[Rfam]
RNA: ALIL pseudoknot
Nucleotides: 116
Base pairs, nucleotide, nucleotide: 015031016030017029018028019027078115079114080113081112088111089110091108092107093106094105095104097102
Number, partner (000 for none) and nucleotide at each position: 001000u002000g003000c004000u005000u006000u007000u008000u009000c010000g011000c012000c013000c014000a015031g016030g017029c018028g019027g020000a021000a022000c023000u024000c025000g026000a027019c028018c029017g030016c031015c032000g033000a034000c035000u036000g037000a038000a039000g040000u041000g042000a043000u044000g045000u046000a047000c048000g049000c050000a051000c052000u053000c054000g055000u056000c057000g058000a059000u060000g061000a062000g063000c064000a065000c066000c067000g068000c069000c070000a071000u072000g073000c074000c075000c076000a077000u078115g079114g080113g081112g082000u083000c084000g085000a086000g087000u088111c089110g090000a091108u092107c093106u094105g095104c096000c097102g098000g099000g100000u101000g102097c103000u104095g105094c106093a107092g108091a109000u110089u111088g112081c113080c114079c115078c116000u